[Rfam]
Nucleotides: 095
Base pairs, nucleotide, nucleotide: 006083007082008081009080010079011044012043013042014041016038017031018030019029020028021027050076051075052074053073056069057068058067059066
Number, partner (000 for none) and nucleotide at each position: 001000c002000g003000u004000a005000a006083a007082c008081u009080u010079u011044a012043g013042g014041g015000g016038u017031g018030c019029u020028g021027a022000a023000a024000u025000g026000c027021u028020c029019g030018g031017c032000u033000g034000a035000g036000a037000a038016a039000u040000a041014c042013c043012c044011u045000u046000u047000g048000a049000a050076c051075c052074u053073g054000a055000a056069c057068a058067g059066g060000a061000u062000a063000a064000u065000a066059c067058c068057u069056g070000c071000g072000a073053u074052a075051g076050g077000g078000a079010a080009a081008a082007g083006u084000u085000g086000a087000a088000a089000a090000c091000u092000a093000u094000a095000a

Rfam assigns this 95-nucleotide RNA from Riemerella anatipestifer to the family "TPP riboswitch aptamer (THI element)". The source organism's lineage runs through Bacteria, Flavobacteriia, Flavobacteriales, Riemerella and Riemerella anatipestifer. Its family is annotated with thiamine pyrophosphate binding in the Gene Ontology.